Record summary
This 352-nucleotide sequence from Diplodia seriata belongs to the Rfam family "Nuclear RNase P". On this family, see Frank and Pace, Annu Rev Biochem 1998: "Ribonuclease P: unity and diversity in a tRNA processing ribozyme". Rfam describes the family as follows. Ribonuclease P (RNase P) is a ubiquitous endoribonuclease, found in archaea, bacteria and eukarya as well as chloroplasts and mitochondria. Its best characterised activity is the generation of mature 5'-ends of tRNAs by cleaving the 5'-leader elements of precursor-tRNAs. Cellular RNase Ps are ribonucleoproteins. RNA from bacterial RNase Ps retains its catalytic activity in the absence of the protein subunit, i.e. it is a ribozyme. The family's RNA type in Rfam is ribozyme.
[Rfam]
RNA sequence: GCCCUCGCCAAUGCUGCGUUUCUUUGCUCACAAACAGACACCGGGUCCCGCUUGGCUGUCGCUGCAUGCAAAUGAGAAAUUCGGAGUAAUCUUCAACCUCACCCGCCAUCGCUGGGCUUGUCCCGGCGCUCUGGCCGCUGCCCGUGAGGGCCUGGCGUGAACACGCCUGCUCCUGGCAUCAGAAAACUCAGGGCCAGCCGGCAGCACCGCCUCCGGGUGGCGUUGCGCAGGUCUGUACCCCUAUGGGAGUCAGGGCGAAGAUUGUGUGCAUGCGCAAGCAUGUGACACUUCAGUGCAAUACGCGGCGUACCGUAUUCCGGUAUCAUUCGAUUCCGAUUACUCUGGCGAGGGC
Numbered sequence: 001g002c003c004c005u006c007g008c009c010a011a012u013g014c015u016g017c018g019u020u021u022c023u024u025u026g027c028u029c030a031c032a033a034a035c036a037g038a039c040a041c042c043g044g045g046u047c048c049c050g051c052u053u054g055g056c057u058g059u060c061g062c063u064g065c066a067u068g069c070a071a072a073u074g075a076g077a078a079a080u081u082c083g084g085a086g087u088a089a090u091c092u093u094c095a096a097c098c099u100c101a102c103c104c105g106c107c108a109u110c111g112c113u114g115g116g117c118u119u120g121u122c123c124c125g126g127c128g129c130u131c132u133g134g135c136c137g138c139u140g141c142c143c144g145u146g147a148g149g150g151c152c153u154g155g156c157g158u159g160a161a162c163a164c165g166c167c168u169g170c171u172c173c174u175g176g177c178a179u180c181a182g183a184a185a186a187c188u189c190a191g192g193g194c195c196a197g198c199c200g201g202c203a204g205c206a207c208c209g210c211c212u213c214c215g216g217g218u219g220g221c222g223u224u225g226c227g228c229a230g231g232u233c234u235g236u237a238c239c240c241c242u243a244u245g246g247g248a249g250u251c252a253g254g255g256c257g258a259a260g261a262u263u264g265u266g267u268g269c270a271u272g273c274g275c276a277a278g279c280a281u282g283u284g285a286c287a288c289u290u291c292a293g294u295g296c297a298a299u300a301c302g303c304g305g306c307g308u309a310c311c312g313u314a315u316u317c318c319g320g321u322a323u324c325a326u327u328c329g330a331u332u333c334c335g336a337u338u339a340c341u342c343u344g345g346c347g348a349g350g351g352c
Base pairs, nucleotide, nucleotide: 001352002351003350004349008345009344010343013306014305015304016303017302018301019300023072024071025070026069037060038059039058040057042055082335083334084333085332086331091260092259093258094257140151141150142149143148154167155166156165157164158163171255172254173253174252175251176250177249191242192241193240307323308322309321310320311319312318
Dot-bracket structure: ((((...(((..(((((((...((((..........((((.(............).))))........)))).........[[[[[....((((.............................................((((....))))..(((((....)))))...(((((((.............(((..............................................)))......))))))).)))).......................................)))))))((((((.....)))))).......]]]]].......)))...))))